[Rfam]
RNA sequence: AGCUUUGCCCAGUGGCAACAUCAUAACCAGUGAGGUUUAUACAGGGUGCAAUUAUUGCUAACUGAAAACUUUUCCUAAUACCCACCAUGAUGACUUGAAAUAUAGUCGGCAUUGGCAAUUUUGGAUAGUCUCUAUGGAGA
Numbered sequence: 001a002g003c004u005u006u007g008c009c010c011a012g013u014g015g016c017a018a019c020a021u022c023a024u025a026a027c028c029a030g031u032g033a034g035g036u037u038u039a040u041a042c043a044g045g046g047u048g049c050a051a052u053u054a055u056u057g058c059u060a061a062c063u064g065a066a067a068a069c070u071u072u073u074c075c076u077a078a079u080a081c082c083c084a085c086c087a088u089g090a091u092g093a094c095u096u097g098a099a100a101u102a103u104a105g106u107c108g109g110c111a112u113u114g115g116c117a118a119u120u121u122u123g124g125a126u127a128g129u130c131u132c133u134a135u136g137g138a139g140a
Stems, first nucleotide, its partner, number of pairs: 020052002024048001026047003035042002085115002087112003091108005129140004